This 99-nucleotide sequence from Aegilops tauschii belongs to the Rfam family "Small nucleolar RNA Z103". Pairs were carried over by alignment from the consensus structure, which was predicted with PFOLD. The family has 12 seed sequences and 2,844 matches in Rfam 15.1. The match comes from Rfam's covariance-model search (96 bits).
[Rfam]
RNA sequence: AUGGAAGUGAUUAUCCUUUCCCCAAAUGAUCGACAUUGAUUAAACUGUGCGCAACUGUAAUCCUUUAUCAGAGGAUUCCAAGCCAGAAAUCUGAUCCAU
Numbered sequence: 001a002u003g004g005a006a007g008u009g010a011u012u013a014u015c016c017u018u019u020c021c022c023c024a025a026a027u028g029a030u031c032g033a034c035a036u037u038g039a040u041u042a043a044a045c046u047g048u049g050c051g052c053a054a055c056u057g058u059a060a061u062c063c064u065u066u067a068u069c070a071g072a073g074g075a076u077u078c079c080a081a082g083c084c085a086g087a088a089a090u091c092u093g094a095u096c097c098a099u
Base pairs, nucleotide, nucleotide: 001099002098003097004096005095
Rfam classes the family as a C/D-box small nucleolar RNA. Gene Ontology terms of the family: nucleolus and RNA processing. On this family, see Chen et al., Nucleic Acids Res 2003: "The high diversity of snoRNAs in plants: identification and comparative study of 120 snoRNA genes from Oryza sativa". The source organism's lineage runs through Eukaryota, Streptophytina, Euphyllophyta, Spermatophyta and Aegilops tauschii.